The family of this 180-nucleotide sequence from Sebaldella termitidis is "Lysine riboswitch aptamer".

RNA sequence: AUAAUAGAUAGAGGCGCGGAAAGCUAAGAGUAGAUUUAUUGAGACUGUCAGUCUGUGAUAUAAAUCAAAAGGAGUAUCCGCCGAAGCUGUGAGAAACUGACAGGUUUCACAGCUGGGCUUGUGGAAAAUAUCCAUAAGACUGUCAUUUCCGUUUAUCGGUAAUGUUGAGCUAUCAGGUAU
Numbered sequence: 001a002u003a004a005u006a007g008a009u010a011g012a013g014g015c016g017c018g019g020a021a022a023g024c025u026a027a028g029a030g031u032a033g034a035u036u037u038a039u040u041g042a043g044a045c046u047g048u049c050a051g052u053c054u055g056u057g058a059u060a061u062a063a064a065u066c067a068a069a070a071g072g073a074g075u076a077u078c079c080g081c082c083g084a085a086g087c088u089g090u091g092a093g094a095a096a097c098u099g100a101c102a103g104g105u106u107u108c109a110c111a112g113c114u115g116g117g118c119u120u121g122u123g124g125a126a127a128a129u130a131u132c133c134a135u136a137a138g139a140c141u142g143u144c145a146u147u148u149c150c151g152u153u154u155a156u157c158g159g160u161a162a163u164g165u166u167g168a169g170c171u172a173u174c175a176g177g178u179a180u
Stems, first nucleotide, its partner, number of pairs: 007174005016081005023075003033066007085114010115141002118138008144164004149159001

A search with the family's covariance model found it, with a score of 109 bits. About the family: Riboswitches are metabolite binding domains within certain messenger RNAs that serve as precision sensors for their corresponding targets.